[Rfam]
RNA sequence: GCAGACUCACUCUGUGCUGAACUGCAGCCUUCAGUUCAGGUGCUUUUCUGUCUGCAAGAGUAACAGCUCACUCGAGUGACCAUGGCCUUCUUUACUGUAGAAGGCUGUUACAGUUGCUGUUGGGACAUUGCU
Numbered sequence: 001g002c003a004g005a006c007u008c009a010c011u012c013u014g015u016g017c018u019g020a021a022c023u024g025c026a027g028c029c030u031u032c033a034g035u036u037c038a039g040g041u042g043c044u045u046u047u048c049u050g051u052c053u054g055c056a057a058g059a060g061u062a063a064c065a066g067c068u069c070a071c072u073c074g075a076g077u078g079a080c081c082a083u084g085g086c087c088u089u090c091u092u093u094a095c096u097g098u099a100g101a102a103g104g105c106u107g108u109u110a111c112a113g114u115u116g117c118u119g120u121u122g123g124g125a126c127a128u129u130g131c132u
Stems, first nucleotide, its partner, number of pairs: 001055006014043003017039004022034003067123002070120001076117002079114002083110002087107001090104002
The record is a 132-nucleotide RNA from Piprites chloris, which matches "Small nucleolar RNA SNORA77" in Rfam. About the family: ACA63 (SNORA77) is a member of the H/ACA class of snoRNAs that guide the sites of modification of uridines to pseudouridines. Pairs were carried over by alignment from the consensus structure, which was predicted with RNAalifold. Lineage of the source: Eukaryota > Archelosauria > Dinosauria > Neoaves > Piprites.